Rfam assigns this 70-nucleotide RNA from Nyctereutes procyonoides to the family "Small nucleolar RNA U2-30". Rfam links the family to the GO terms RNA processing and nucleolus.
RNA sequence: GAGCAAUGAUAAAUAGGUUUUACUACUGACCUUUACAGCUAUAAAGGCUUCUACACUUGAUCUGAGCUCA
Numbered sequence: 001g002a003g004c005a006a007u008g009a010u011a012a013a014u015a016g017g018u019u020u021u022a023c024u025a026c027u028g029a030c031c032u033u034u035a036c037a038g039c040u041a042u043a044a045a046g047g048c049u050u051c052u053a054c055a056c057u058u059g060a061u062c063u064g065a066g067c068u069c070a
Base pairs, nucleotide, nucleotide: 001069002068003067004066013034015032016031017030018029019028

On this family, see Tycowski et al., Curr Biol 2004: "Guide RNAs with 5' Caps and Novel Box C/D snoRNA-like Domains for Modification of snRNAs in Metazoa". The base pairs follow the family's consensus structure, which is taken from published work.